[Rfam]
RNA sequence: AAUAAGUGAUGAAAAAAACGUUUUGGUUCCAACUAAUGUCUUGUGAUAACUUAAAUUUUUCUGAUGUU
Numbered sequence: 001a002a003u004a005a006g007u008g009a010u011g012a013a014a015a016a017a018a019c020g021u022u023u024u025g026g027u028u029c030c031a032a033c034u035a036a037u038g039u040c041u042u043g044u045g046a047u048a049a050c051u052u053a054a055a056u057u058u059u060u061c062u063g064a065u066g067u068u
Stems, first nucleotide, its partner, number of pairs: 001068004
Dot-bracket structure: ((((............................................................))))